[Rfam]
RNA sequence: GGACGGUGAUCCUGACUGGUGUCAGGGGCUGCUUGGAAAGCAGUACGCACUGAAAAGUGUGGGGUUCAAUUCCUCCGCCGUCC
Numbered sequence: 001g002g003a004c005g006g007u008g009a010u011c012c013u014g015a016c017u018g019g020u021g022u023c024a025g026g027g028g029c030u031g032c033u034u035g036g037a038a039a040g041c042a043g044u045a046c047g048c049a050c051u052g053a054a055a056a057g058u059g060u061g062g063g064g065u066u067c068a069a070u071u072c073c074u075c076c077g078c079c080g081u082c083c
Stems, first nucleotide, its partner, number of pairs: 001083008011026006028044005048059004061075004
RNA: Selenocysteine transfer RNA